[Rfam]
RNA sequence: UCCUUUAUACAUUUGUCCCAAUGAAAACAUUAUUUACAAAUAACUGGUGGUGGAAAUUCGAACAGCAAAACGUUGGUUCGUAAUAGCGCUAUGUAGUUAUAUGUAGAAAAGGCUUGUC
Numbered sequence: 001u002c003c004u005u006u007a008u009a010c011a012u013u014u015g016u017c018c019c020a021a022u023g024a025a026a027a028c029a030u031u032a033u034u035u036a037c038a039a040a041u042a043a044c045u046g047g048u049g050g051u052g053g054a055a056a057u058u059c060g061a062a063c064a065g066c067a068a069a070a071c072g073u074u075g076g077u078u079c080g081u082a083a084u085a086g087c088g089c090u091a092u093g094u095a096g097u098u099a100u101a102u103g104u105a106g107a108a109a110a111g112g113c114u115u116g117u118c
Stems, first nucleotide, its partner, number of pairs: 036104003040100007049090004056084002060081001064074003
Dot-bracket structure: ...................................(((.(((((((..((((...((..(...(((.....)))......).))..))))...))))))).)))..............